[Rfam]
RNA: c-di-AMP riboswitch aptamer (ydaO/yuaA leader)
Organism: Mycolicibacterium brumae
RNA sequence: CACAGCAACCCGCGGAUGGAGACGGGGGACCCAACCGGUCCCGCCGAUCGGACCUGGGGCCAACGGCCCCUUGGGGUGAAGCCGACGUUUGGUCAUUCGUGGCUAGACGACGGCCGGGCAGCCUCUCCAGCCCGAACCCGACAGCUGACCUCGUGGGCGCGUUGCAGAGAGGAAUA
Number, nucleotide and partner (000 for none) at each position: 001c021002a000003c019004a000005g000006c000007a000008a000009c000010c000011c000012g000013c000014g000015g000016a000017u000018g000019g003020a000021g001022a154023c153024g152025g151026g150027g149028g000029a000030c000031c000032c073033a072034a000035c000036c000037g000038g000039u000040c000041c000042c000043g000044c000045c000046g000047a000048u000049c000050g000051g000052a000053c000054c000055u000056g000057g000058g000059g000060c000061c000062a000063a000064c000065g000066g000067c000068c000069c000070c000071u000072u033073g032074g139075g138076g137077u000078g000079a000080a000081g000082c113083c112084g111085a000086c000087g000088u000089u000090u000091g000092g000093u000094c000095a000096u000097u000098c000099g000100u000101g000102g000103c000104u000105a000106g000107a000108c000109g000110a000111c084112g083113g082114c000115c000116g133117g132118g131119c130120a000121g000122c000123c000124u000125c000126u000127c000128c000129a000130g119131c118132c117133c116134g000135a000136a000137c076138c075139c074140g000141a000142c000143a000144g000145c000146u000147g000148a000149c027150c026151u025152c024153g023154u022155g000156g000157g000158c000159g000160c000161g000162u000163u000164g000165c000166a000167g000168a000169g000170a000171g000172g000173a000174a000175u000176a000